[Rfam]
RNA sequence: UCCGCGAAUGCGGGGAAGAUUACACCUGUCGCCGGUUCGACUCCGGCUCUCGCGCAAGCGAGGUAGCUCAGCCAGGUAGAGCAGUUAACGGAUCUUCCCAAUCUUUGUCGCGGAUCU
Numbered sequence: 001u002c003c004g005c006g007a008a009u010g011c012g013g014g015g016a017a018g019a020u021u022a023c024a025c026c027u028g029u030c031g032c033c034g035g036u037u038c039g040a041c042u043c044c045g046g047c048u049c050u051c052g053c054g055c056a057a058g059c060g061a062g063g064u065a066g067c068u069c070a071g072c073c074a075g076g077u078a079g080a081g082c083a084g085u086u087a088a089c090g091g092a093u094c095u096u097c098c099c100a101a102u103c104u105u106u107g108u109c110g111c112g113g114a115u116c117u
Stems, first nucleotide, its partner, number of pairs: 002113006013099007024085002031047005038076001048063006066082004
Rfam assigns this 117-nucleotide RNA sequence from Verrucomicrobiales bacterium VVV1 to the family "Y RNA-like". Pairs were carried over by alignment from the consensus structure, which is taken from published work. The family's RNA type in Rfam is small RNA. It scores 88 bits against the family's covariance model. In Deinococcus radiodurans Rsr is tethered via Y RNA to the exoribonuclease PNPase and channels single-stranded RNA into the PNPase cavity. Rsr and Y RNA enhance degradation of structured RNAs by PNPase. The source organism's lineage runs through Bacteria, Pseudomonadati, Verrucomicrobiota, Verrucomicrobiia and Verrucomicrobiales.